This 80-nucleotide RNA sequence from Oncorhynchus kisutch belongs to the Rfam family "mir-181 microRNA precursor family".
[Rfam]
RNA sequence: AUGUCCCAGUGAACAUUCAACGCUGUCGGUGAGUUUGUGACUUAGAGAAACCAUCGAGUGUUGAGUGUACCCUGCCUCUU
Numbered sequence: 001a002u003g004u005c006c007c008a009g010u011g012a013a014c015a016u017u018c019a020a021c022g023c024u025g026u027c028g029g030u031g032a033g034u035u036u037g038u039g040a041c042u043u044a045g046a047g048a049a050a051c052c053a054u055c056g057a058g059u060g061u062u063g064a065g066u067g068u069a070c071c072c073u074g075c076c077u078c079u080u
Stems, first nucleotide, its partner, number of pairs: 003079001007074002014067009026057006033051004
The base pairs follow the family's consensus structure, which was predicted with PFOLD. Taxonomically the source falls in Oncorhynchus (Eukaryota, Craniata, Actinopteri, Euteleosteomorpha).